[Rfam]
RNA sequence: AUGUGAUGUGACAUGCCCGUUGGGUUUACUCUGAUAUUGAAUUAUUAUUAUUAUUUAAUUGAUUUUGGGAAACGGGGUGUUACAAUUGG
Numbered sequence: 001a002u003g004u005g006a007u008g009u010g011a012c013a014u015g016c017c018c019g020u021u022g023g024g025u026u027u028a029c030u031c032u033g034a035u036a037u038u039g040a041a042u043u044a045u046u047a048u049u050a051u052u053a054u055u056u057a058a059u060u061g062a063u064u065u066u067g068g069g070a071a072a073c074g075g076g077g078u079g080u081u082a083c084a085a086u087u088g089g
Base pairs, nucleotide, nucleotide: 002089005086007084008083009082010081011080012079013078014077016076017075018074019073020072021071
RNA: MIR2617 microRNA precursor family